This 248-nucleotide part of an RNA from Azospirillum lipoferum belongs to the Rfam family "Bacterial large subunit ribosomal RNA". The source organism's lineage runs through Bacteria, Pseudomonadati, Alphaproteobacteria, Azospirillaceae and Azospirillum lipoferum. The base pairs follow the family's consensus structure, which is taken from published work. Gene Ontology terms of the family: structural constituent of ribosome and ribosome.

[Rfam]
RNA sequence: GGAGUUUUGCGAGGAUCUGUCCCUAGUACGAGAGGACCGGGAUGGACAUACCUCUGGUGCACCGGUUGUCACGCCAGUGGCAUGGCCGGGUAGCUAAGUAUGGACGGGAUAACCGCUGAAAGCAUCUAAGCGGGAAACCCACCUCUAAACCAGAGCUCCCUUGAGAGCCGUGACAGACCAUCACGUCGAUAGGAGGCAUGUGGAAGGGCGGCAACGCCUGAAGCUAAGCCUUACUAAUCGCUCGAUCG
Numbered sequence: 001g002g003a004g005u006u007u008u009g010c011g012a013g014g015a016u017c018u019g020u021c022c023c024u025a026g027u028a029c030g031a032g033a034g035g036a037c038c039g040g041g042a043u044g045g046a047c048a049u050a051c052c053u054c055u056g057g058u059g060c061a062c063c064g065g066u067u068g069u070c071a072c073g074c075c076a077g078u079g080g081c082a083u084g085g086c087c088g089g090g091u092a093g094c095u096a097a098g099u100a101u102g103g104a105c106g107g108g109a110u111a112a113c114c115g116c117u118g119a120a121a122g123c124a125u126c127u128a129a130g131c132g133g134g135a136a137a138c139c140c141a142c143c144u145c146u147a148a149a150c151c152a153g154a155g156c157u158c159c160c161u162u163g164a165g166a167g168c169c170g171u172g173a174c175a176g177a178c179c180a181u182c183a184c185g186u187c188g189a190u191a192g193g194a195g196g197c198a199u200g201u202g203g204a205a206g207g208g209c210g211g212c213a214a215c216g217c218c219u220g221a222a223g224c225u226a227a228g229c230c231u232u233a234c235u236a237a238u239c240g241c242u243c244g245a246u247c248g
Stems, first nucleotide, its partner, number of pairs: 001159008011145004017045007047102005055096003062089005067082006106140003113133005162245001165243004169185005190236003193232005200224001206219005